[Rfam]
RNA sequence: GGAUAUUUGAGAGGAGCUGUCCUUAGUACGAGAGGACCGGGAUGGACGGACCGCUGGUGGAUCUGUUGGCUACCAAAGCCAUGGCAGAGUAGCCAAGUCCGGCAGGGAUAAACGCUGAAGGCAUCUAAGCGUGAAGCCCCCCUCAAGAUGAGAUAUCCCAAGUAGUAAGACCCCUUAGAGAGUAUGAGGUAGAUAGGCUGGAGGUGGAAGUGCAGUAAUGCAUGGAGCUGACCAGUACUAAUCGGUCGAGG
Numbered sequence: 001g002g003a004u005a006u007u008u009g010a011g012a013g014g015a016g017c018u019g020u021c022c023u024u025a026g027u028a029c030g031a032g033a034g035g036a037c038c039g040g041g042a043u044g045g046a047c048g049g050a051c052c053g054c055u056g057g058u059g060g061a062u063c064u065g066u067u068g069g070c071u072a073c074c075a076a077a078g079c080c081a082u083g084g085c086a087g088a089g090u091a092g093c094c095a096a097g098u099c100c101g102g103c104a105g106g107g108a109u110a111a112a113c114g115c116u117g118a119a120g121g122c123a124u125c126u127a128a129g130c131g132u133g134a135a136g137c138c139c140c141c142c143u144c145a146a147g148a149u150g151a152g153a154u155a156u157c158c159c160a161a162g163u164a165g166u167a168a169g170a171c172c173c174c175u176u177a178g179a180g181a182g183u184a185u186g187a188g189g190u191a192g193a194u195a196g197g198c199u200g201g202a203g204g205u206g207g208a209a210g211u212g213c214a215g216u217a218a219u220g221c222a223u224g225g226a227g228c229u230g231a232c233c234a235g236u237a238c239u240a241a242u243c244g245g246u247c248g249a250g251g
Stems, first nucleotide, its partner, number of pairs: 001158008011144004017045007047101005055095003062088005067081005105139003112132005166249001169247004173189005194240003197236005203229002210223005